[Rfam]
RNA sequence: UACUCCGAUUUCUGCCCCACGUUCCUUACUCAGCCAUGGAAUAAUGGGUUCUACUUUUGGAGGAGAGAAAGCCACAUGACUUCAAUUAAACGCUUGAUACUUGUUUGUUGCGGUUGUGUGGAUCGUGUGAUGUGCCUUGACCACUAAGACCAAGGGCCAGAUUAAUGGCCGGGUUGGUUGGGGCCGCUCUACAUUU
Numbered sequence: 001u002a003c004u005c006c007g008a009u010u011u012c013u014g015c016c017c018c019a020c021g022u023u024c025c026u027u028a029c030u031c032a033g034c035c036a037u038g039g040a041a042u043a044a045u046g047g048g049u050u051c052u053a054c055u056u057u058u059g060g061a062g063g064a065g066a067g068a069a070a071g072c073c074a075c076a077u078g079a080c081u082u083c084a085a086u087u088a089a090a091c092g093c094u095u096g097a098u099a100c101u102u103g104u105u106u107g108u109u110g111c112g113g114u115u116g117u118g119u120g121g122a123u124c125g126u127g128u129g130a131u132g133u134g135c136c137u138u139g140a141c142c143a144c145u146a147a148g149a150c151c152a153a154g155g156g157c158c159a160g161a162u163u164a165a166u167g168g169c170c171g172g173g174u175u176g177g178u179u180g181g182g183g184c185c186g187c188u189c190u191a192c193a194u195u196u
Stems, first nucleotide, its partner, number of pairs: 003062004016048004021042005072121010083107003087103001127189001129187001134184004148175004154170001156169004
Notes: Small nucleolar RNA snR43: a 196-nucleotide sequence from Babjeviella inositovora. The family is grouped with related families in Rfam's "SNORA9 clan".